[Rfam]
RNA: Bacterial large subunit ribosomal RNA, nucleotides 852 to 1301
RNA sequence: CUCCCCGAAAUGCAUUUAGGUGCAGCCUCGGGAAGCAGUGUCGCGGAGGUAGAGCGACUGAUAGGAUGCGAGGGCUUCACCGCCUAUCAAGUCCUGACAAACUCCGAAUGCCGCGACAUGAUGCCCGGGAGUGAGGGCGCGGGUGCUAAGGUCCGCGUCCGAGAGAGGAACAACUCAGACCACCGGCUAAGGCCCCCAAGUGCGGGCUAAGUUGAAGCCAAUAACGAGGUGGGAUUGCAUAGACAGCUAGGAUGUUGGCUUGGAAGCAGCCAUUCAUUUAAAGAGUGCGUAACAGCUCACUAGUCGAGUGAUCCCGCAUGGAUAAUAAUCGGGCAUAAGCCCGCCGCCGAAGCCGUGGAAUAGAAUUUUAGGAUUUUAUUGGUAGGGGAGCAUUCCGUGAGCCGUCGAAGGUGAGGCGCGAGCCUUGCUGGAGGCAACGGAAAAGCAAAU
Numbered sequence: 001c002u003c004c005c006c007g008a009a010a011u012g013c014a015u016u017u018a019g020g021u022g023c024a025g026c027c028u029c030g031g032g033a034a035g036c037a038g039u040g041u042c043g044c045g046g047a048g049g050u051a052g053a054g055c056g057a058c059u060g061a062u063a064g065g066a067u068g069c070g071a072g073g074g075c076u077u078c079a080c081c082g083c084c085u086a087u088c089a090a091g092u093c094c095u096g097a098c099a100a101a102c103u104c105c106g107a108a109u110g111c112c113g114c115g116a117c118a119u120g121a122u123g124c125c126c127g128g129g130a131g132u133g134a135g136g137g138c139g140c141g142g143g144u145g146c147u148a149a150g151g152u153c154c155g156c157g158u159c160c161g162a163g164a165g166a167g168g169a170a171c172a173a174c175u176c177a178g179a180c181c182a183c184c185g186g187c188u189a190a191g192g193c194c195c196c197c198a199a200g201u202g203c204g205g206g207c208u209a210a211g212u213u214g215a216a217g218c219c220a221a222u223a224a225c226g227a228g229g230u231g232g233g234a235u236u237g238c239a240u241a242g243a244c245a246g247c248u249a250g251g252a253u254g255u256u257g258g259c260u261u262g263g264a265a266g267c268a269g270c271c272a273u274u275c276a277u278u279u280a281a282a283g284a285g286u287g288c289g290u291a292a293c294a295g296c297u298c299a300c301u302a303g304u305c306g307a308g309u310g311a312u313c314c315c316g317c318a319u320g321g322a323u324a325a326u327a328a329u330c331g332g333g334c335a336u337a338a339g340c341c342c343g344c345c346g347c348c349g350a351a352g353c354c355g356u357g358g359a360a361u362a363g364a365a366u367u368u369u370a371g372g373a374u375u376u377u378a379u380u381g382g383u384a385g386g387g388g389a390g391c392a393u394u395c396c397g398u399g400a401g402c403c404g405u406c407g408a409a410g411g412u413g414a415g416g417c418g419c420g421a422g423c424c425u426u427g428c429u430g431g432a433g434g435c436a437a438c439g440g441a442a443a444a445g446c447a448a449a450u
Stems, first nucleotide, its partner, number of pairs: 001390006011024005026131001027129006037122001038119009052105001053103002059099002063095004070088002072085004135160010165176003180358004185354003191348003200345001202344006225320002229317010246304005252277003257271003278282001283298001287296002359380008391445001393442006401435003410429008